[Rfam]
RNA: Eukaryotic small subunit ribosomal RNA, nucleotides 622 to 1155
RNA sequence: CAGUUAAAAAGCUCAUAGUUGGAUCUUGGAAGCAAGAUGGCAAUCUGCUGUGAGGCGAGUUACUGCCCCUCCCAGCCCUUGCCUCUCGACGCUCCCUUGAUGCUCUUAACUGAGUGUCCUAGGGGUCCGAAGCAUUUAAUUUGAAAACAUUAGAGUGUUCAAAGCAGGCUGGUCACCGGAAUACUCCAGCUAGGAAUAAUGGAAUAGGACUCUGGUUCUAUUUUGUUGGUUUUCCGAACUGGAACCAUGAUUAAGAGGGAUGGCCGGGGGCAUUUGUAUUGUGCCACUAGAGGUGAAAUUCUUGGACCAGCACAAGCUAAACCAAAGCAAAAGCAUUGCCAAGAAUGUUUUCAUUAAUCAAGAAUGAAAUUCAGAGGUUCGAAGAUGAUUAGAUACUGUCACAGUUCCGACCAUAAACAAUGCCAACAAGUGAUCCAGCAGCGUUAUUCCCAUGACCCGCCAGGCAACGUAAGGGAAACCAAAGUCUUUGAGUUCCAAGUGGGGUAUGAUUGCAAAGCUGAAAGUUAAAGGAAC
Number, nucleotide and partner (000 for none) at each position: 001c000002a000003g495004u000005u000006a000007a000008a000009a494010a000011g365012c000013u363014c362015a000016u000017a000018g358019u357020u356021g000022g000023a000024u000025c000026u000027u000028g000029g000030a000031a000032g000033c000034a000035a000036g000037a000038u000039g000040g000041c000042a000043a000044u000045c000046u000047g000048c000049u000050g000051u000052g000053a000054g000055g000056c000057g000058a000059g000060u000061u000062a000063c000064u000065g000066c000067c000068c000069c000070u000071c000072c000073c000074a000075g000076c000077c000078c000079u000080u000081g000082c000083c000084u000085c000086u000087c000088g000089a000090c000091g000092c000093u000094c000095c000096c000097u000098u000099g000100a000101u000102g000103c000104u000105c000106u000107u000108a000109a000110c000111u000112g000113a000114g000115u000116g000117u000118c000119c000120u000121a000122g000123g000124g000125g000126u000127c000128c000129g000130a000131a000132g000133c000134a000135u000136u000137u000138a000139a000140u000141u000142u000143g000144a000145a000146a000147a000148c000149a000150u000151u000152a000153g000154a000155g000156u000157g000158u000159u000160c000161a000162a000163a000164g000165c000166a000167g000168g000169c000170u000171g000172g000173u000174c000175a000176c000177c000178g000179g000180a000181a000182u000183a000184c000185u000186c000187c000188a000189g000190c000191u000192a000193g000194g000195a000196a000197u000198a000199a000200u000201g000202g000203a000204a000205u000206a000207g000208g000209a000210c000211u000212c000213u000214g000215g000216u000217u000218c000219u000220a000221u000222u000223u000224u000225g000226u000227u000228g000229g000230u000231u000232u000233u000234c000235c000236g000237a000238a000239c000240u000241g000242g000243a000244a000245c000246c000247a000248u000249g000250a000251u000252u000253a000254a000255g000256a000257g352258g351259g350260a349261u347262g346263g000264c000265c343266g000267g000268g000269g340270g339271c338272a337273u000274u335275u319276g318277u000278a000279u315280u314281g313282u312283g311284c310285c000286a000287c000288u000289a000290g301291a300292g299293g000294u000295g000296a000297a000298a000299u292300u291301c290302u000303u000304g000305g000306a000307c000308c000309a000310g284311c283312a282313c281314a280315a279316g000317c000318u276319a275320a000321a000322c000323c000324a000325a000326a000327g334328c333329a000330a000331a000332a000333g328334c327335a274336u000337u272338g271339c270340c269341a000342a000343g265344a000345a000346u262347g261348u000349u260350u259351u258352c257353a000354u000355u000356a020357a019358u018359c000360a000361a000362g014363a013364a000365u011366g000367a000368a000369a000370u000371u410372c409373a000374g407375a406376g000377g000378u000379u000380c404381g000382a000383a000384g400385a399386u398387g397388a000389u000390u000391a000392g000393a000394u000395a000396c000397u387398g386399u385400c384401a000402c000403a000404g380405u000406u375407c374408c000409g372410a371411c000412c000413a000414u000415a000416a000417a000418c000419a000420a000421u000422g493423c492424c000425a000426a485427c484428a000429a000430g468431u467432g000433a000434u464435c463436c000437a000438g460439c459440a000441g457442c000443g456444u455445u454446a000447u000448u000449c000450c000451c000452a000453u000454g445455a444456c443457c441458c000459g439460c438461c000462a000463g435464g434465c000466a000467a431468c430469g000470u000471a000472a000473g480474g479475g000476a000477a000478a000479c474480c473481a000482a000483a000484g427485u426486c000487u000488u000489u000490g000491a000492g423493u422494u009495c003496c000497a000498a000499g526500u000501g000502g000503g000504g000505u000506a000507u000508g519509a000510u517511u516512g000513c000514a000515a000516a511517g510518c000519u508520g000521a000522a000523a000524g000525u000526u499527a000528a000529a000530g000531g000532a000533a000534c000